[Rfam]
RNA sequence: CCCUCGACCGAGGGGAGCCUCGACAAGAGGCUGAGAUUCUGCUGGCCCCGCAUCCUCAAAUGCCCGGGCAGCGCAGUGACCCUUUGAACCUGAUCCGGAUCAUGCCGGCGAAGGGACGGGGACGCCGCGCCCU
Numbered sequence: 001c002c003c004u005c006g007a008c009c010g011a012g013g014g015g016a017g018c019c020u021c022g023a024c025a026a027g028a029g030g031c032u033g034a035g036a037u038u039c040u041g042c043u044g045g046c047c048c049c050g051c052a053u054c055c056u057c058a059a060a061u062g063c064c065c066g067g068g069c070a071g072c073g074c075a076g077u078g079a080c081c082c083u084u085u086g087a088a089c090c091u092g093a094u095c096c097g098g099a100u101c102a103u104g105c106c107g108g109c110g111a112a113g114g115g116a117c118g119g120g121g122a123c124g125c126c127g128c129g130c131c132c133u
Base pairs, nucleotide, nucleotide: 008119009118010117011083012082013081014080016077017031018030019029020028021027039076040075041074042073089114090113091112095108096107097106098105
Shown here is a 133-nucleotide RNA from Rhodovibrio salinarum, a member of the family "TPP riboswitch aptamer (THI element)". The source organism's lineage runs through Bacteria, Pseudomonadati, Alphaproteobacteria, Rhodovibrionaceae and Rhodovibrio. It scores 68 bits against the family's covariance model.